[Rfam]
RNA: Guanidine-II riboswitch aptamer (mini-ykkC)
RNA sequence: GCGCCGGGACGACCCGGCGCCACUUUUCCUGCAAACGGGGACGACCCCA
Numbered sequence: 001g002c003g004c005c006g007g008g009a010c011g012a013c014c015c016g017g018c019g020c021c022a023c024u025u026u027u028c029c030u031g032c033a034a035a036c037g038g039g040g041a042c043g044a045c046c047c048c049a
Stems, first nucleotide, its partner, number of pairs: 001020008037048004